[Rfam]
RNA: freshwater-2 RNA
RNA sequence: CCCAUCGCUAUAUUGUUGGGACUUAUGCGGAAUAACCACCGCGUACCCAGGAGAACUGGGAUUGGACUCCUAUAAGGAGAAAACAAAUG
Numbered sequence: 001c002c003c004a005u006c007g008c009u010a011u012a013u014u015g016u017u018g019g020g021a022c023u024u025a026u027g028c029g030g031a032a033u034a035a036c037c038a039c040c041g042c043g044u045a046c047c048c049a050g051g052a053g054a055a056c057u058g059g060g061a062u063u064g065g066a067c068u069c070c071u072a073u074a075a076g077g078a079g080a081a082a083a084c085a086a087a088u089g
Stems, first nucleotide, its partner, number of pairs: 001020004006015001024045007046060004